[Rfam]
RNA sequence: CACACUGCAUGGUAUCUGCCCUUAGCAGCUCAUUCCUGCUGGGUGUUCAAAGGACAGUGCAAUAGAAACUCAGUAUCUGGCAUCGUUGGUUUUCUUGGCUUCAUGCAUGUUAAACCUGGUAUUUUUAUUGAAACAGUA
Numbered sequence: 001c002a003c004a005c006u007g008c009a010u011g012g013u014a015u016c017u018g019c020c021c022u023u024a025g026c027a028g029c030u031c032a033u034u035c036c037u038g039c040u041g042g043g044u045g046u047u048c049a050a051a052g053g054a055c056a057g058u059g060c061a062a063u064a065g066a067a068a069c070u071c072a073g074u075a076u077c078u079g080g081c082a083u084c085g086u087u088g089g090u091u092u093u094c095u096u097g098g099c100u101u102c103a104u105g106c107a108u109g110u111u112a113a114a115c116c117u118g119g120u121a122u123u124u125u126u127a128u129u130g131a132a133a134c135a136g137u138a
Base pairs, nucleotide, nucleotide: 003059004058005057006056007055015053016052017051018046019045021043022042023041024040025039026038027037028036063127064126065125066124067123068122070119071118072117073116080106081105082104083103
Shown here is a 138-nucleotide RNA sequence from Mustela putorius, a member of the family "Small nucleolar RNA SNORA8". NCBI's taxonomy places the organism under Eukaryota, Vertebrata, Carnivora, Mustelidae, Mustela putorius. The family's consensus secondary structure was predicted with RNAfold. The family's RNA type in Rfam is H/ACA-box small nucleolar RNA. Clan: SNORA8 clan. It scores 132 bits against the family's covariance model. Rfam's curators write: ACA8 is a member of the H/ACA class of snoRNA that guide the sites of modification of uridines to pseudouridines.